[Rfam]
RNA sequence: CCUCAUAGUCUCUGCAUAAGCAGAGACUAUGAGGGCUUUCUUUCUGUCUUCAACCAGGAUCUGCUCGUG
Numbered sequence: 001c002c003u004c005a006u007a008g009u010c011u012c013u014g015c016a017u018a019a020g021c022a023g024a025g026a027c028u029a030u031g032a033g034g035g036c037u038u039u040c041u042u043u044c045u046g047u048c049u050u051c052a053a054c055c056a057g058g059a060u061c062u063g064c065u066c067g068u069g
Stems, first nucleotide, its partner, number of pairs: 001034015

ClpQY promoter: a 69-nucleotide sequence from Serratia symbiotica. A reference for the family is Lien et al. (2009), "Regulation of clpQ(+)Y(+) (hslV(+)U(+)) gene expression in Escherichia coli", Open Microbiol J. It is one of the family's seed sequences. Rfam links the family to the GO term mRNA stabilization.